Shown here is a 77-nucleotide sequence from Jaculus jaculus, a member of the family "mir-3473 microRNA precursor family". Gene Ontology terms of the family: cellular response to mechanical stimulus, miRNA-mediated post-transcriptional gene silencing and RISC complex. Lineage of the source: Eukaryota > Gnathostomata > Teleostomi > Dipodoidea > Jaculus. The match comes from Rfam's covariance-model search (73 bits).
RNA sequence: ACCUCUGAGCCAUCUUUCCAGCCCUUAAAUUUUUUUAAAAGAAGUUUUACUUUGGGCUGGAGAGAUGGCUUAGUGGU
Numbered sequence: 001a002c003c004u005c006u007g008a009g010c011c012a013u014c015u016u017u018c019c020a021g022c023c024c025u026u027a028a029a030u031u032u033u034u035u036u037a038a039a040a041g042a043a044g045u046u047u048u049a050c051u052u053u054g055g056g057c058u059g060g061a062g063a064g065a066u067g068g069c070u071u072a073g074u075g076g077u
Stems, first nucleotide, its partner, number of pairs: 002076002005073020